RNA sequence: GAAUGUUAUCGCAAUAGUAAUUGAACUUAGUACGAGAGGAACCGUUCAUUCGGAUAAUUGGUUUUUGCGGCUGUCUGAUCAGGCAUUGCCGCGAAGCUACCAUCCGCUGGAUUAUGGCUGAACGCCUCUAAGUCAGAAUCCAUACUAGAACGCGAUGAUUCUUGCCUCGCACAUUUUAGAUGGAUAAAAAUAAGGCCUUGUGCCGCUGAACCAUAGCAGGCUGGUAACGGCACUCAGUAGAUAAAUUAUUGGGUGCUUACCGGUGGAUAGCAAUGUUACUAUGCGCGGGGAUAAAUCCUUUGCAGACGACUUAAAUGUACAACGGAGUAUUGUAAGCAGUAGAGUAGCCUUGUUGUUACGAUCUGCUGAGAUUAAGCUCUUGUUGUCCGAUUUGU
Numbered sequence: 001g002a003a004u005g006u007u008a009u010c011g012c013a014a015u016a017g018u019a020a021u022u023g024a025a026c027u028u029a030g031u032a033c034g035a036g037a038g039g040a041a042c043c044g045u046u047c048a049u050u051c052g053g054a055u056a057a058u059u060g061g062u063u064u065u066u067g068c069g070g071c072u073g074u075c076u077g078a079u080c081a082g083g084c085a086u087u088g089c090c091g092c093g094a095a096g097c098u099a100c101c102a103u104c105c106g107c108u109g110g111a112u113u114a115u116g117g118c119u120g121a122a123c124g125c126c127u128c129u130a131a132g133u134c135a136g137a138a139u140c141c142a143u144a145c146u147a148g149a150a151c152g153c154g155a156u157g158a159u160u161c162u163u164g165c166c167u168c169g170c171a172c173a174u175u176u177u178a179g180a181u182g183g184a185u186a187a188a189a190a191u192a193a194g195g196c197c198u199u200g201u202g203c204c205g206c207u208g209a210a211c212c213a214u215a216g217c218a219g220g221c222u223g224g225u226a227a228c229g230g231c232a233c234u235c236a237g238u239a240g241a242u243a244a245a246u247u248a249u250u251g252g253g254u255g256c257u258u259a260c261c262g263g264u265g266g267a268u269a270g271c272a273a274u275g276u277u278a279c280u281a282u283g284c285g286c287g288g289g290g291a292u293a294a295a296u297c298c299u300u301u302g303c304a305g306a307c308g309a310c311u312u313a314a315a316u317g318u319a320c321a322a323c324g325g326a327g328u329a330u331u332g333u334a335a336g337c338a339g340u341a342g343a344g345u346a347g348c349c350u351u352g353u354u355g356u357u358a359c360g361a362u363c364u365g366c367u368g369a370g371a372u373u374a375a376g377c378u379c380u381u382g383u384u385g386u387c388c389g390a391u392u393u394g395u
Stems, first nucleotide, its partner, number of pairs: 005159008015147004020050001022048005051106005059099003066093005072085005108142003115135005166289005172283001293393005299313001302310001319386006325379003329372002336366004341362001344359005
This 395-nucleotide part of an RNA from Sugiyamaella lignohabitans belongs to the Rfam family "Eukaryotic large subunit ribosomal RNA". Its family is annotated with structural constituent of ribosome and ribosome in the Gene Ontology. The base pairs follow the family's consensus structure, which is taken from published work.